[Rfam]
RNA sequence: GCUGAGGAAUGAUGACAGUAAAAGGCCGAAUUGCAGUGUCUCCAUCAGCAGUUUGCUCUCUACGUGGACACACGAUGACAAAACCUCCUGAAGCGAACCAUUGUCUGACCUCAGU
Dot-bracket structure: (((((((......(((........((......))((((..(((.((((..((.((.((.......)).)).))((.(......).)))))).).))..)))))))...)))))))
RNA: Small nucleolar RNA SNORD89
Organism: Nannospalax galili